[Rfam]
RNA sequence: ACCGCCAGCAGCCUGGCAAAGUAAGGGAUCAAUGGUAGAUUGAGGAUCAGGAGAAAGACGUUGCCCAGAUACAUUGACAUGAUCAAUCCCCAGAAAACUUGUGGAUUAGCUGUCAACAUCCGUGGCCC
Numbered sequence: 001a002c003c004g005c006c007a008g009c010a011g012c013c014u015g016g017c018a019a020a021g022u023a024a025g026g027g028a029u030c031a032a033u034g035g036u037a038g039a040u041u042g043a044g045g046a047u048c049a050g051g052a053g054a055a056a057g058a059c060g061u062u063g064c065c066c067a068g069a070u071a072c073a074u075u076g077a078c079a080u081g082a083u084c085a086a087u088c089c090c091c092a093g094a095a096a097a098c099u100u101g102u103g104g105a106u107u108a109g110c111u112g113u114c115a116a117c118a119u120c121c122g123u124g125g126c127c128c
Base pairs, nucleotide, nucleotide: 004017005016006015007014008013026128027127029125030124031123033122034121035120038114039113040112045107046106047105048104050102052100053099061093062092063091067087073083074082075081
About this RNA: Ruegeria cis8 sRNA: a 128-nucleotide sequence from Desulfuromusa kysingii. The family has 2 seed sequences and 138 matches in Rfam 15.1. By type it is a small RNA. Taxonomically the source falls in Desulfuromusa (Bacteria, Pseudomonadati, Thermodesulfobacteriota, Desulfuromonadia). A reference for the family is Rivers et al. (2016), "Experimental Identification of Small Non-Coding RNAs in the Model Marine Bacterium Ruegeria pomeroyi DSS-3", Front Microbiol.